[Rfam]
RNA: L31-Actinobacteria ribosomal protein leader
Organism: Nocardioides alkalitolerans
RNA sequence: CUGGUUCCGGUUCACGUGCGCCCAUCCGGGGCGGCACGACCCGGCGACC
Numbered sequence: 001c002u003g004g005u006u007c008c009g010g011u012u013c014a015c016g017u018g019c020g021c022c023c024a025u026c027c028g029g030g031g032c033g034g035c036a037c038g039a040c041c042c043g044g045c046g047a048c049c
Stems, first nucleotide, its partner, number of pairs: 003049003007044004015038005020032003